This 255-nucleotide sequence from Chlorella vulgaris belongs to the Rfam family "RNase MRP".
About the family: RNase MRP is an enzymatically active ribonucleoprotein with two distinct roles in eukaryotes. In mitochondria it plays a direct role in the initiation of mitochondrial DNA replication. In the nucleus it is involved in precursor rRNA processing, where it cleaves the internal transcribed spacer 1 between 18S and 5.8S rRNAs.
Lineage of the source: Eukaryota > Viridiplantae > Chlorophyta > Trebouxiophyceae > Chlorella.
[Rfam]
RNA sequence: ACGCAGCGCGAAGGGCCACCUCAGCAGUCCCUCGCUUCCCGCACCCCCCAAUGCCGAUUUGCUGGGCGAAAGUCCCCGGGCACCCAGGCAGAAAGUGCCAACCCGAAAGGGUAGGGCCCCCGCCCGCCCCUGCCGGCGACGGCAGCGUUGGCGGCGGGGCAGCUUGCCAUAACCACAGUUAUGUGGCCGGCGGCGGUUGCUGCUCUCGGGCGGCAGCCGCUUGUCAACACAACGGGGCUUACUCUCGCGCUGACG
Numbered sequence: 001a002c003g004c005a006g007c008g009c010g011a012a013g014g015g016c017c018a019c020c021u022c023a024g025c026a027g028u029c030c031c032u033c034g035c036u037u038c039c040c041g042c043a044c045c046c047c048c049c050a051a052u053g054c055c056g057a058u059u060u061g062c063u064g065g066g067c068g069a070a071a072g073u074c075c076c077c078g079g080g081c082a083c084c085c086a087g088g089c090a091g092a093a094a095g096u097g098c099c100a101a102c103c104c105g106a107a108a109g110g111g112u113a114g115g116g117c118c119c120c121c122g123c124c125c126g127c128c129c130c131u132g133c134c135g136g137c138g139a140c141g142g143c144a145g146c147g148u149u150g151g152c153g154g155c156g157g158g159g160c161a162g163c164u165u166g167c168c169a170u171a172a173c174c175a176c177a178g179u180u181a182u183g184u185g186g187c188c189g190g191c192g193g194c195g196g197u198u199g200c201u202g203c204u205c206u207c208g209g210g211c212g213g214c215a216g217c218c219g220c221u222u223g224u225c226a227a228c229a230c231a232a233c234g235g236g237g238c239u240u241a242c243u244c245u246c247g248c249g250c251u252g253a254c255g
Stems, first nucleotide, its partner, number of pairs: 002255002004252008014188006021066001022064005070240003074237004087099004101112004114160001120157005126152003130145006190224002192221012